[Rfam]
RNA sequence: UCCGGUCCUCGGUAGUGGCUCCCGGAGCACCGUCCUCGUGAGGGACUCCGGAGGCCUCGAUCGAAGACCGCC
Number, nucleotide and partner (000 for none) at each position: 001u000002c000003c070004g069005g068006u067007c066008c000009u064010c063011g062012g061013u060014a000015g000016u000017g056018g055019c054020u053021c000022c051023c050024g049025g048026a047027g046028c000029a000030c044031c000032g000033u000034c000035c000036u000037c000038g000039u000040g000041a000042g000043g000044g030045a000046c027047u026048c025049c024050g023051g022052a000053g020054g019055c018056c017057u000058c000059g000060a013061u012062c011063g010064a009065a000066g007067a006068c005069c004070g003071c000072c000
RNA: Actino-pnp RNA